[Rfam]
RNA sequence: GCGGGGCGCGUCUAGGGUUCCGUCGGAUUCUCCGGGGCUGGUCCGAGAGACGCAGGCAAGGCGGCUGCCUUGUUCCACGGCGGGAUAAAAGCCCGGGAGGC
Numbered sequence: 001g002c003g004g005g006g007c008g009c010g011u012c013u014a015g016g017g018u019u020c021c022g023u024c025g026g027a028u029u030c031u032c033c034g035g036g037g038c039u040g041g042u043c044c045g046a047g048a049g050a051c052g053c054a055g056g057c058a059a060g061g062c063g064g065c066u067g068c069c070u071u072g073u074u075c076c077a078c079g080g081c082g083g084g085a086u087a088a089a090a091g092c093c094c095g096g097g098a099g100g101c
Stems, first nucleotide, its partner, number of pairs: 008053005015044002020041002022038001023035005055074008076096001078099001082094003
Guanidine-I riboswitch aptamer: a 101-nucleotide sequence from Alloactinosynnema sp. L-07. The base pairs follow the family's consensus structure. Lineage of the source: Bacteria > Actinomycetota > Pseudonocardiales > Pseudonocardiaceae > Alloactinosynnema. Gene Ontology term of the family: regulation of gene expression. It scores 82 bits against the family's covariance model.